[Rfam]
RNA sequence: GAAGCCCCGUUGAGUUGACUCAGUUGUUUUUGUAGGGAACAUCAGAGGUGUAGCAUAAGUGGGGUUGACAUCACGGUCACUUGGGGCCCGGUGGGGGCCGACAAUGAAAUACCACUCUCUGAUCGUUUUUUUACUUACUCGGUGGGGGACGGAAUCGGAGCUUCCCCACGGGGAUUGUCCCCGGGUUUCUAGCCUAAAGGGGCGGAAGGGGGGGGCGCGUGGGGUUUGGGCCCCCGCGUUAGCCUGACCGGCGUUCGCGCCCGCCGCGAUCCGCUCCGAGGAAAUUUCAGGUGGGGAUUUUGACUGGGGGGUAAUCUGUCAAACGAUAAGGGCAGGUGUCCAAAGGGCCCAGCCAGCGGGACAGAAACCUCGCGUAAGAAAAAGGGGAAAAGUGGCUUGACCCUGUUUUUCAUACGAAUAGGGACUGCGAAAGCAGGGCCUAUCACCCUUUUUGACUUUAGAUUUUUAAUCAAGAGGGUCAGAAAAGUUACCACGGGGAUAAUGGCUUGUGGCGGCCAAGCGUUCAUAGCGACGUCCUUUUUGAUCCUUCGAGU
Numbered sequence: 001g002a003a004g005c006c007c008c009g010u011u012g013a014g015u016u017g018a019c020u021c022a023g024u025u026g027u028u029u030u031u032g033u034a035g036g037g038a039a040c041a042u043c044a045g046a047g048g049u050g051u052a053g054c055a056u057a058a059g060u061g062g063g064g065u066u067g068a069c070a071u072c073a074c075g076g077u078c079a080c081u082u083g084g085g086g087c088c089c090g091g092u093g094g095g096g097g098c099c100g101a102c103a104a105u106g107a108a109a110u111a112c113c114a115c116u117c118u119c120u121g122a123u124c125g126u127u128u129u130u131u132u133a134c135u136u137a138c139u140c141g142g143u144g145g146g147g148g149a150c151g152g153a154a155u156c157g158g159a160g161c162u163u164c165c166c167c168a169c170g171g172g173g174a175u176u177g178u179c180c181c182c183g184g185g186u187u188u189c190u191a192g193c194c195u196a197a198a199g200g201g202g203c204g205g206a207a208g209g210g211g212g213g214g215g216c217g218c219g220u221g222g223g224g225u226u227u228g229g230g231c232c233c234c235c236g237c238g239u240u241a242g243c244c245u246g247a248c249c250g251g252c253g254u255u256c257g258c259g260c261c262c263g264c265c266g267c268g269a270u271c272c273g274c275u276c277c278g279a280g281g282a283a284a285u286u287u288c289a290g291g292u293g294g295g296g297a298u299u300u301u302g303a304c305u306g307g308g309g310g311g312u313a314a315u316c317u318g319u320c321a322a323a324c325g326a327u328a329a330g331g332g333c334a335g336g337u338g339u340c341c342a343a344a345g346g347g348c349c350c351a352g353c354c355a356g357c358g359g360g361a362c363a364g365a366a367a368c369c370u371c372g373c374g375u376a377a378g379a380a381a382a383a384g385g386g387g388a389a390a391a392g393u394g395g396c397u398u399g400a401c402c403c404u405g406u407u408u409u410u411c412a413u414a415c416g417a418a419u420a421g422g423g424a425c426u427g428c429g430a431a432a433g434c435a436g437g438g439c440c441u442a443u444c445a446c447c448c449u450u451u452u453u454g455a456c457u458u459u460a461g462a463u464u465u466u467u468a469a470u471c472a473a474g475a476g477g478g479u480c481a482g483a484a485a486a487g488u489u490a491c492c493a494c495g496g497g498g499a500u501a502a503u504g505g506c507u508u509g510u511g512g513c514g515g516c517c518a519a520g521c522g523u524u525c526a527u528a529g530c531g532a533c534g535u536c537c538u539u540u541u542u543g544a545u546c547c548u549u550c551g552a553g554u
Base pairs, nucleotide, nucleotide: 006497007496008495009494011493012492013489014488015486016485018299020297021296024290025289026288032134033133034132035131036129037128038127039126040125041123042122043121044120045119046118047117058116059115060114061113062112063099064098065097066096138280139279140278141277142276150273151272152271153270157182158181160179199267201265202264203263204262205261303312304311305310314337315336316335317334318333319332340438341437346396348395349394351393353378356373357372358371359369360368402423403422404421407418408417409416426435427434428433449476450475451474452473453472454471458469459468460467505545507543509542511538512537514536515535516534520530521529

Background: This 554-nucleotide part of an RNA from Chionoecetes opilio belongs to the Rfam family "Eukaryotic large subunit ribosomal RNA". Rfam links the family to the GO terms ribosome and structural constituent of ribosome. On this family, see Yusupov et al., Science 2001: "Crystal structure of the ribosome at 5.5 A resolution". Taxonomically the source falls in Chionoecetes (Eukaryota, Ecdysozoa, Stomatocarida, Brachyura). The match comes from Rfam's covariance-model search (1652 bits).